[Rfam]
RNA sequence: UUCGCCACCAAGGGGAGUCCCGGCAAGGGGCUGAGAGUUCGCUGGCGUCCCGGAAUGGGCGGCGCGAUGACCCUUAGAACCUGAUCCGGAUCAUGCCGGCGAAGGGAUGGGAGAGAUGCGCCUG
Numbered sequence: 001u002u003c004g005c006c007a008c009c010a011a012g013g014g015g016a017g018u019c020c021c022g023g024c025a026a027g028g029g030g031c032u033g034a035g036a037g038u039u040c041g042c043u044g045g046c047g048u049c050c051c052g053g054a055a056u057g058g059g060c061g062g063c064g065c066g067a068u069g070a071c072c073c074u075u076a077g078a079a080c081c082u083g084a085u086c087c088g089g090a091u092c093a094u095g096c097c098g099g100c101g102a103a104g105g106g107a108u109g110g111g112a113g114a115g116a117u118g119c120g121c122c123u124g
Stems, first nucleotide, its partner, number of pairs: 008110003011074004016068001017031005039067004080105003086099004
Shown here is a 124-nucleotide RNA from Paracoccus yeei, a member of the family "TPP riboswitch aptamer (THI element)". The family's consensus secondary structure is taken from published work. It scores 69 bits against the family's covariance model. Lineage of the source: Bacteria > Alphaproteobacteria > Rhodobacterales > Paracoccaceae > Paracoccus.